This 75-nucleotide RNA from Actinoplanes missouriensis belongs to the Rfam family "c-di-GMP-I-GGC riboswitch aptamer". The organism belongs to Actinoplanes missouriensis, within Bacteria. For this family Rfam cites "Bioinformatic analysis of riboswitch structures uncovers variant classes with altered ligand specificity" (Weinberg et al., Proc Natl Acad Sci U S A, 2017).
[Rfam]
RNA sequence: GCCGACAAGAGCAAACCCGGCGCAAGCCGGGGACGCAAAGCCACAGAGCCCAUGAGGCUGGCUGGGCUACCGACC
Numbered sequence: 001g002c003c004g005a006c007a008a009g010a011g012c013a014a015a016c017c018c019g020g021c022g023c024a025a026g027c028c029g030g031g032g033a034c035g036c037a038a039a040g041c042c043a044c045a046g047a048g049c050c051c052a053u054g055a056g057g058c059u060g061g062c063u064g065g066g067c068u069a070c071c072g073a074c075c
Base pairs, nucleotide, nucleotide: 001075003072004071011036012035016031017030018029019028020027021026034061039068040067041066042065044064045063046062047059048058049057